Nucleotides: 114
Stems, first nucleotide, its partner, number of pairs: 007026006048065004
Number, partner (000 for none) and nucleotide at each position: 001000g002000c003000g004000g005000g006000a007026u008025g009024c010023u011022g012021a013000a014000u015000u016000a017000g018000a019000g020000a021012u022011c023010g024009g025008c026007a027000c028000c029000c030000a031000u032000a033000c034000a035000u036000u037000c038000a039000u040000u041000u042000u043000a044000u045000a046000c047000c048065g049064g050063a051062g052000u053000u054000u055000a056000u057000u058000a059000u060000g061000u062051c063050u064049c065048u066000a067000a068000g069000c070000g071000u072000a073000g074000a075000a076000g077000c078000u079000a080000a081000a082000g083000c084000a085000g086000a087000g088000a089000u090000c091000g092000u093000u094000g095000c096000u097000a098000a099000a100000u101000a102000u103000g104000g105000c106000c107000g108000u109000g110000g111000u112000g113000c114000u
This 114-nucleotide RNA sequence from Pantoea sp. M_5 belongs to the Rfam family "Ribosomal S15 leader". The base pairs follow the family's consensus structure, which is taken from published work. Its family is annotated with regulation of translation, ncRNA-mediated in the Gene Ontology. Rfam's curators write: The E. coli Ribosomal S15 gene 5' UTR can form two alternative structures. One that is a series of three hairpins, The other includes a pseudoknot. This structure causes translational regulation of the S15 protein. The alignment of this family contains only the final two hairpins which are conserved in other species, and also includes the complete region that forms the alternate structures. Its Rfam clan is "Ribosomal Protein S15 Leader clan". For this family Rfam cites "Pseudoknot and translational control in the expression of the S15 ribosomal protein" (Benard et al., Biochimie, 1996). The match comes from Rfam's covariance-model search (90 bits).